[Rfam]
RNA sequence: GUCUGUACUAGUUAGCUAACUAGAUCUGUAUCUGGCGGACCCGCGGAGGAGGCGACGGCCUCGGACUCCCGACCGCAGCCCUGGAAGACGUUCCAGUGGC
Numbered sequence: 001g002u003c004u005g006u007a008c009u010a011g012u013u014a015g016c017u018a019a020c021u022a023g024a025u026c027u028g029u030a031u032c033u034g035g036c037g038g039a040c041c042c043g044c045g046g047a048g049g050a051g052g053c054g055a056c057g058g059c060c061u062c063g064g065a066c067u068c069c070c071g072a073c074c075g076c077a078g079c080c081c082u083g084g085a086a087g088a089c090g091u092u093c094c095a096g097u098g099g100c
Base pairs, nucleotide, nucleotide: 003028005026008023009022010021011020012019013018035076036075037074038073042071043070045069046068047067048066049062050061051060052059053058079098081096082095083094084093085092086091

The record is a 100-nucleotide sequence from Microtus ochrogaster, which matches "Gammaretrovirus core encapsidation signal" in Rfam. Rfam links the family to the GO term viral genome packaging. The family's RNA type in Rfam is cis-regulatory element. The literature on the family includes a 2004 paper in J Mol Biol by D'Souza et al., "NMR structure of the 101-nucleotide core encapsidation signal of the Moloney Murine Leukemia Virus". NCBI's taxonomy places the organism under Eukaryota, Eumetazoa, Boreoeutheria, Arvicolinae, Microtus. Rfam 15.1 lists 81 matches to the family in 15 species.